[Rfam]
Actino-pnp RNA: a 60-nucleotide sequence from Brevibacterium casei. Rfam classes the family as a cis-regulatory element.

Nucleotides: 060
Stems, first nucleotide, its partner, number of pairs: 002059006009052005017044005023038006
Number, partner (000 for none) and nucleotide at each position: 001000u002059u003058c004057g005056g006055u007054c008000c009052u010051c011050g012049g013048u014000a015000g016000u017044g018043g019042c020041c021040u022000c023038c024037g025036g026035a027034g028033g029000g030000a031000a032000c033028c034027u035026u036025c037024c038023g039000u040021g041020g042019g043018c044017c045000c046000c047000g048013a049012u050011c051010g052009a053000u054007g055006a056005c057004c058003g059002g060000c